RNA: Tryptophan operon leader
RNA sequence: UCAGGUUGGUGGCGCUCUUCCCUUACGCGGGUGGAGUAAUCACGCAUAGCUAUUAUCAUACAUGCAGAUAUUCCCAGGCCCGCUUAUUAAGCGGGCUUUUUCAU
Numbered sequence: 001u002c003a004g005g006u007u008g009g010u011g012g013c014g015c016u017c018u019u020c021c022c023u024u025a026c027g028c029g030g031g032u033g034g035a036g037u038a039a040u041c042a043c044g045c046a047u048a049g050c051u052a053u054u055a056u057c058a059u060a061c062a063u064g065c066a067g068a069u070a071u072u073c074c075c076a077g078g079c080c081c082g083c084u085u086a087u088u089a090a091g092c093g094g095g096c097u098u099u100u101u102c103a104u
Stems, first nucleotide, its partner, number of pairs: 009043004014037005020031003077097007084089001